[Rfam]
RNA: c-di-GMP-I riboswitch aptamer
Organism: Dorea sp. CAG:105
RNA sequence: UAGAAUUAACGGCAGACGCAUCGAAAGAUGCAGACGCAAAGCCAUUGGGUCUACGGCUUAUAAUUCAGGCUAUGACAGCCGGUUGCAGAA
Numbered sequence: 001u002a003g004a005a006u007u008a009a010c011g012g013c014a015g016a017c018g019c020a021u022c023g024a025a026a027g028a029u030g031c032a033g034a035c036g037c038a039a040a041g042c043c044a045u046u047g048g049g050u051c052u053a054c055g056g057c058u059u060a061u062a063a064u065u066c067a068g069g070c071u072a073u074g075a076c077a078g079c080c081g082g083u084u085g086c087a088g089a090a
Stems, first nucleotide, its partner, number of pairs: 012037002018031005040084004047080002049076003056070004